This 290-nucleotide RNA sequence from Merluccius polli belongs to the Rfam family "Nuclear RNase P".
The family's RNA type in Rfam is ribozyme.
The base pairs follow the family's consensus structure, which is taken from published work.
About the family: Ribonuclease P (RNase P) is a ubiquitous endoribonuclease, found in archaea, bacteria and eukarya as well as chloroplasts and mitochondria. Its best characterised activity is the generation of mature 5'-ends of tRNAs by cleaving the 5'-leader elements of precursor-tRNAs. Cellular RNase Ps are ribonucleoproteins. RNA from bacterial RNase Ps retains its catalytic activity in the absence of the protein subunit, i.e. it is a ribozyme. Isolated eukaryotic and archaeal RNase P RNA has not been shown to retain its catalytic function, but is still essential for the catalytic activity of the holoenzyme. Although the archaeal and eukaryotic holoenzyme s have a much greater protein content than the bacterial ones, the RNA cores from all the three lineages are homologous -- helices corresponding to P1, P2, P3, P4, and P10/11 are common to all cellular RNase P RNAs. Yet, there is considerable sequence variation, particularly among the eukaryotic RNAs.
It scores 147 bits against the family's covariance model.

[Rfam]
RNA sequence: GUGGGAGGAAGCGCAUUGUAGAGGUCACCUGCAGAGCGUGAUGACACUCAAACAUUACCUUGGGAAAGGUCUGAGACAGGAGCCAUUUGUCUCCCUUGCAGGCUGUCAUCUCAACAAGGUGAGUGAGUGCACAGGCCUCACUAAGGGAGUUCAAAGGAGAAGCUGCAUGAUGUCCUUGUGCACAACUGGUGGAUUUGAUGUGGCUUCGAAACACUCACAGCUGGCAGAUGAGUGCAAUGGAUGAGGUGGAGCACCGCUCCAGAACCUAGUUCAGACUACUCUCCCCCCAC
Numbered sequence: 001g002u003g004g005g006a007g008g009a010a011g012c013g014c015a016u017u018g019u020a021g022a023g024g025u026c027a028c029c030u031g032c033a034g035a036g037c038g039u040g041a042u043g044a045c046a047c048u049c050a051a052a053c054a055u056u057a058c059c060u061u062g063g064g065a066a067a068g069g070u071c072u073g074a075g076a077c078a079g080g081a082g083c084c085a086u087u088u089g090u091c092u093c094c095c096u097u098g099c100a101g102g103c104u105g106u107c108a109u110c111u112c113a114a115c116a117a118g119g120u121g122a123g124u125g126a127g128u129g130c131a132c133a134g135g136c137c138u139c140a141c142u143a144a145g146g147g148a149g150u151u152c153a154a155a156g157g158a159g160a161a162g163c164u165g166c167a168u169g170a171u172g173u174c175c176u177u178g179u180g181c182a183c184a185a186c187u188g189g190u191g192g193a194u195u196u197g198a199u200g201u202g203g204c205u206u207c208g209a210a211a212c213a214c215u216c217a218c219a220g221c222u223g224g225c226a227g228a229u230g231a232g233u234g235c236a237a238u239g240g241a242u243g244a245g246g247u248g249g250a251g252c253a254c255c256g257c258u259c260c261a262g263a264a265c266c267u268a269g270u271u272c273a274g275a276c277u278a279c280u281c282u283c284c285c286c287c288c289a290c
Stems, first nucleotide, its partner, number of pairs: 001290004007284003012245001014243004021061004034049003038045002071274005081222003091105001094102002106122006123218007135204003247261006